[Rfam]
The record is a 98-nucleotide RNA sequence from Erysipelothrix sp. HDW6A, which matches "Purine riboswitch aptamer" in Rfam. The organism belongs to Erysipelothrix, within Bacteria.
RNA sequence: AUAUAAAACAAAGAUUUUUAUCAUAUAUGCAUCAAAUACGGUGAUGCGUUUCUACCUGAGACCUUAAAUUUCAGACUAUGAUAGGAAACCUUCUUUUA
Numbered sequence: 001a002u003a004u005a006a007a008a009c010a011a012a013g014a015u016u017u018u019u020a021u022c023a024u025a026u027a028u029g030c031a032u033c034a035a036a037u038a039c040g041g042u043g044a045u046g047c048g049u050u051u052c053u054a055c056c057u058g059a060g061a062c063c064u065u066a067a068a069u070u071u072c073a074g075a076c077u078a079u080g081a082u083a084g085g086a087a088a089c090c091u092u093c094u095u096u097u098a
Stems, first nucleotide, its partner, number of pairs: 018084008029047006056074006
Its family is annotated with purine nucleobase biosynthetic process in the Gene Ontology.